[Rfam]
RNA sequence: GGCCGGUGAUGCAUGAUCAAUUUGUCCGUACCAUCUGAGACUCUGUCUCUGACGAAUGCUCAAAUCCUUAAAUCUGAGGCCU
Dot-bracket structure: ((((.........................................................................)))).
The record is an 82-nucleotide RNA from Vigna radiata, which matches "small nucleolar RNA snoR117" in Rfam. The literature on the family includes a 2009 paper in Nucleic Acids Res by Chen and Wu, "Mining small RNA sequencing data: a new approach to identify small nucleolar RNAs in Arabidopsis". Lineage of the source: Eukaryota > Streptophyta > Magnoliopsida > Mesangiospermae > Vigna radiata. The family has 6 seed sequences and 419 matches in Rfam 15.1. The family's consensus secondary structure was predicted with RNAalifold. Its family is annotated with nucleolus and RNA processing in the Gene Ontology. Rfam classes the family as a C/D-box small nucleolar RNA.